[Rfam]
RNA sequence: UCCGAGACUGCAGUCACAUCCUGACACAGCUCUUGUCCUGUGCGCUAGAGUCUUCAGAGAGAACCUGCUGGUCUUGAGUCACCAGCGAGGGUGAUCAGUGCCCCAGUAGUGCCCAGAUCAGGAACAGGU
Numbered sequence: 001u002c003c004g005a006g007a008c009u010g011c012a013g014u015c016a017c018a019u020c021c022u023g024a025c026a027c028a029g030c031u032c033u034u035g036u037c038c039u040g041u042g043c044g045c046u047a048g049a050g051u052c053u054u055c056a057g058a059g060a061g062a063a064c065c066u067g068c069u070g071g072u073c074u075u076g077a078g079u080c081a082c083c084a085g086c087g088a089g090g091g092u093g094a095u096c097a098g099u100g101c102c103c104c105a106g107u108a109g110u111g112c113c114c115a116g117a118u119c120a121g122g123a124a125c126a127g128g129u
Stems, first nucleotide, its partner, number of pairs: 002057001004055003007051003012046002015044001017042002020040001023037004068121007076113001080111003084107001087104001089103004
Shown here is a 129-nucleotide sequence from Myotis davidii, a member of the family "Small nucleolar RNA SNORA3/SNORA45 family". A search with the family's covariance model found it, with a score of 80 bits. It is annotated as an H/ACA-box small nucleolar RNA. The family is grouped with related families in Rfam's "SNORA3 clan". Rfam 15.1 lists 2,080 matches to the family in 639 species. NCBI's taxonomy places the organism under Eukaryota, Chordata, Dipnotetrapodomorpha, Laurasiatheria, Myotis. The family's consensus secondary structure was predicted with RNAalifold. Rfam links the family to the GO terms RNA processing and nucleolus.